[Rfam]
RNA sequence: GGAUGCUGGUUUCACAUGGUGGUUUAGAUGUGUUCUACGAUAGUGUUCUACCAGUGUUCUAGCACCAUUUGAAAUCAGUGUUCC
Numbered sequence: 001g002g003a004u005g006c007u008g009g010u011u012u013c014a015c016a017u018g019g020u021g022g023u024u025u026a027g028a029u030g031u032g033u034u035c036u037a038c039g040a041u042a043g044u045g046u047u048c049u050a051c052c053a054g055u056g057u058u059c060u061a062g063c064a065c066c067a068u069u070u071g072a073a074a075u076c077a078g079u080g081u082u083c084c
Stems, first nucleotide, its partner, number of pairs: 001084003005079010016068006025061004
mir-29 microRNA precursor family: an 84-nucleotide sequence from Cyprinus carpio. The sequence is in the family's curated seed alignment.